[Rfam]
Description: The record is a 99-nucleotide RNA sequence from Amycolatopsis pithecellobii, which matches "Glycine riboswitch aptamer" in Rfam.
RNA sequence: GCCACUCUGGAAAGCAGGCGCGACAGCUGCGUCUCACCCAAGGUGAAAGCCGCGCUGGCCGCGGUGAAACUCUCAGGUGCCGAUGACAGAGGGGGAGUU
Numbered sequence: 001g002c003c004a005c006u007c008u009g010g011a012a013a014g015c016a017g018g019c020g021c022g023a024c025a026g027c028u029g030c031g032u033c034u035c036a037c038c039c040a041a042g043g044u045g046a047a048a049g050c051c052g053c054g055c056u057g058g059c060c061g062c063g064g065u066g067a068a069a070c071u072c073u074c075a076g077g078u079g080c081c082g083a084u085g086a087c088a089g090a091g092g093g094g095g096a097g098u099u
Stems, first nucleotide, its partner, number of pairs: 002094002005091005016034006036078003040073001043072001045070001049065005
Description: The match comes from Rfam's covariance-model search (41 bits). Taxonomically the source falls in Amycolatopsis (Bacteria, Bacillati, Pseudonocardiales, Pseudonocardiaceae).